[Rfam]
TPP riboswitch aptamer (THI element): a 102-nucleotide RNA sequence from Synechococcales cyanobacterium T60_A2020_003. A search with the family's covariance model found it, with a score of 62 bits.

RNA sequence: GUGACAAGCUAGGGGUGCCUGAGCAUUGCUUCCAGGCUGAGAUUACACCCUUAGAACCUGAGUCCGGUUAGCACCGGUGGAGGGAAGCUGUUAAUUAAGAGG
Numbered sequence: 001g002u003g004a005c006a007a008g009c010u011a012g013g014g015g016u017g018c019c020u021g022a023g024c025a026u027u028g029c030u031u032c033c034a035g036g037c038u039g040a041g042a043u044u045a046c047a048c049c050c051u052u053a054g055a056a057c058c059u060g061a062g063u064c065c066g067g068u069u070a071g072c073a074c075c076g077g078u079g080g081a082g083g084g085a086a087g088c089u090g091u092u093a094a095u096u097a098a099g100a101g102g
Stems, first nucleotide, its partner, number of pairs: 007089004011051004016045001017037005057083003064077004
Dot-bracket structure: ......((((((((.((((((...........))))).......)..)))).....(((....((((......))))...)))..)))).............